[Rfam]
Nucleotides: 075
Stems, first nucleotide, its partner, number of pairs: 012067003016063002021058002026053003032048006
Number, partner (000 for none) and nucleotide at each position: 001000a002000u003000a004000u005000c006000g007000c008000a009000u010000u011000a012067g013066u014065g015000a016063u017062a018000g019000u020000a021058a022057c023000g024000g025000c026053a027052u028051c029000c030000u031000u032048u033047u034046g035045c036044a037043g038000u039000a040000u041000u042000c043037c044036u045035g046034c047033a048032a049000a050000a051028g052027a053026u054000a055000u056000a057022g058021u059000g060000g061000a062017u063016a064000g065014c066013a067012c068000g069000a070000c071000c072000c073000u074000u075000a